[Rfam]
RNA sequence: CUGAGAUCAGGCGAAGGAAUCCGCCUUUAUGUGCCUUCCGAUACGGAAAGGCUGAUGACUCCUACCCUGCG
Numbered sequence: 001c002u003g004a005g006a007u008c009a010g011g012c013g014a015a016g017g018a019a020u021c022c023g024c025c026u027u028u029a030u031g032u033g034c035c036u037u038c039c040g041a042u043a044c045g046g047a048a049a050g051g052c053u054g055a056u057g058a059c060u061c062c063u064a065c066c067c068u069g070c071g
Stems, first nucleotide, its partner, number of pairs: 010025004016062003020058002033052004